[Rfam]
Nucleotides: 089
Base pairs, nucleotide, nucleotide: 001087002086003085004084005083009076010075011074012073013072038071039070040069046064047063048062051060052059
Number, partner (000 for none) and nucleotide at each position: 001087a002086c003085u004084g005083u006000g007000g008000a009076g010075u011074g012073u013072a014000c015000a016000u017000u018000g019000u020000u021000g022000u023000u024000c025000c026000a027000a028000c029000a030000u031000u032000g033000g034000a035000a036000c037000u038071u039070g040069u041000g042000a043000g044000u045000a046064g047063c048062g049000u050000g051060u052059u053000g054000c055000u056000u057000g058000c059052a060051a061000u062048c063047g064046u065000c066000a067000a068000a069040a070039c071038a072013u073012g074011c075010a076009c077000a078000a079000u080000g081000a082000a083005g084004c085003a086002g087001u088000a089000a